[Rfam]
RNA sequence: AUGAAAUUACACAUUAUACCGUAGACAGCAGGUGCGAAAGCUUAAUUUCCUGCCGAGGUGUGUCUGGAUAUAGGUUUGGGUGAAGUGUUCACUCUUAAACCAAACAGUCAUAAAACCUCCAUGUCUACAUGGGGGUUUUUGAUUGGAUUG
Numbered sequence: 001a002u003g004a005a006a007u008u009a010c011a012c013a014u015u016a017u018a019c020c021g022u023a024g025a026c027a028g029c030a031g032g033u034g035c036g037a038a039a040g041c042u043u044a045a046u047u048u049c050c051u052g053c054c055g056a057g058g059u060g061u062g063u064c065u066g067g068a069u070a071u072a073g074g075u076u077u078g079g080g081u082g083a084a085g086u087g088u089u090c091a092c093u094c095u096u097a098a099a100c101c102a103a104a105c106a107g108u109c110a111u112a113a114a115a116c117c118u119c120c121a122u123g124u125c126u127a128c129a130u131g132g133g134g135g136u137u138u139u140u141g142a143u144u145g146g147a148u149u150g
Base pairs, nucleotide, nucleotide: 028053029052030051031050032049034041035040116135117134118133119132120131121130122129123128
RNA: Ribosomal protein L10 leader
Organism: Saliterribacillus persicus